RNA sequence: UGAACAGGCUGCUCAGUAGUUGGUGUAGGAUCUGUCCGAUAAUACCAACAGCUACAUCUGAUUACUGGGUUUCUUGUGCCAUCA
Numbered sequence: 001u002g003a004a005c006a007g008g009c010u011g012c013u014c015a016g017u018a019g020u021u022g023g024u025g026u027a028g029g030a031u032c033u034g035u036c037c038g039a040u041a042a043u044a045c046c047a048a049c050a051g052c053u054a055c056a057u058c059u060g061a062u063u064a065c066u067g068g069g070u071u072u073c074u075u076g077u078g079c080c081a082u083c084a
Stems, first nucleotide, its partner, number of pairs: 013068006020061003023057006032051004
mir-221 microRNA precursor family: an 84-nucleotide RNA from Notechis scutatus. Taxonomically the source falls in Notechis (Eukaryota, Eumetazoa, Lepidosauria, Hydrophiinae). Pairs were carried over by alignment from the consensus structure, which was predicted with RNAalifold. Gene Ontology terms of the family: miRNA-mediated post-transcriptional gene silencing and RISC complex. On this family, see Yao et al., J Virol 2008: "MicroRNA profile of Marek's disease virus-transformed T-cell line MSB-1: predominance of virus-encoded microRNAs".